Rfam assigns this 123-nucleotide RNA sequence from Myotis lucifugus to the family "U11 spliceosomal RNA".
The organism belongs to Myotis, within Eukaryota.
Pairs were carried over by alignment from the consensus structure, which is taken from published work.
Rfam classes the family as a spliceosomal small nuclear RNA.
Rfam links the family to the GO terms U11 snRNP, mRNA 5'-splice site recognition and pre-mRNA 5'-splice site binding.
RNA sequence: AAAAAUUGUGGUAUCCACGUAGAGCAGCCUGAUUGCUCUACGUGCGGAAUCGACAUCAAGAGAUUUCGGAAGCAUAAUUUUUUGGUACUUGGGCAGCUGGUGAUCGUUGGUCCUGGCGCCUGC
Numbered sequence: 001a002a003a004a005a006u007u008g009u010g011g012u013a014u015c016c017a018c019g020u021a022g023a024g025c026a027g028c029c030u031g032a033u034u035g036c037u038c039u040a041c042g043u044g045c046g047g048a049a050u051c052g053a054c055a056u057c058a059a060g061a062g063a064u065u066u067c068g069g070a071a072g073c074a075u076a077a078u079u080u081u082u083u084g085g086u087a088c089u090u091g092g093g094c095a096g097c098u099g100g101u102g103a104u105c106g107u108u109g110g111u112c113c114u115g116g117c118g119c120c121u122g123c
Base pairs, nucleotide, nucleotide: 003014005012006011016044017043018042019041020040021039022038023037024036025035026034027033045068046067047066048065049064050063051062091121092120093119094118096117097116098115099114100113102112103111104110105109
The family is grouped with related families in Rfam's "U1 clan".